The family of this 442-nucleotide part of an RNA from Pseudobythopirellula maris is "Bacterial large subunit ribosomal RNA". The match comes from Rfam's covariance-model search (2675 bits). NCBI's taxonomy places the organism under Bacteria, Planctomycetota, Planctomycetia, Pirellulales, Pseudobythopirellula.

[Rfam]
RNA sequence: CUCUCCGAAAUAGCUUUAGGGCUAGCCUCGAGCAACUAUUUAACGGGGGUAGAGAUACUGAUUUGGUUUGGGGCCCUUCGCGGGGUACCCUGCUGAGCCAAACUCCGAAUACCGUUAAAACUAUCUCGGGAGUCAGUCCGCGGGGGAUAAGCUCCGCGGUCGAGAGGGAAACAACCCAGAUUACCUGCUAAGGUCCCCAAGUGAUGCUCAGUCACUAAGGAAGUUGAAUUGCAGUGACAGCCAGGAUGUUGGCUUAGAAGCAGCCAUCAUUUAAAAAGUGCGUAACAGCUUACUGGUCGAGCAGUUCUGCGCCCAUAAUGAACGGGAGUAAGCAUCACACCGAAGCAGUAGAAUCCGCCUCCGGGCGGUUUGGUAGGAGAGCGCUGUUGGUCAGAUACAAGCCGUACCGUAAGGAGCGGUGUCGGGGCCAACAGGUGAUUAU
Dot-bracket structure: ((((((....(((((....))))).(((((((....(.((((((((.....(((....((..((((...((.(((((....))))).))...))))..))..)).).....))))))))...).)))))).)...(.((((((((......)))))))).)....(((......)))...((((.(((...(((......(((((((...........((..((.(((((((.......(((((.(((..(((.........)))..)))(...)(...((......)).).)))))...))))))).)).))..................))))))))))...)))))))((.(((((....))))).))....))))))(.(((((((.(........(((((.((....)).))))).....).)))))))..).....